[Rfam]
RNA sequence: UGCUGGUGGGCCUGAAUCCUUGCUCAGCCUGGGACUGUGUAAGGAAGAUGAGCAAAGUUUCAGGUGUGUCAGUGA
Numbered sequence: 001u002g003c004u005g006g007u008g009g010g011c012c013u014g015a016a017u018c019c020u021u022g023c024u025c026a027g028c029c030u031g032g033g034a035c036u037g038u039g040u041a042a043g044g045a046a047g048a049u050g051a052g053c054a055a056a057g058u059u060u061c062a063g064g065u066g067u068g069u070c071a072g073u074g075a
Stems, first nucleotide, its partner, number of pairs: 002073006010065006018057001020055002023052004029047002
RNA: mir-87 microRNA precursor family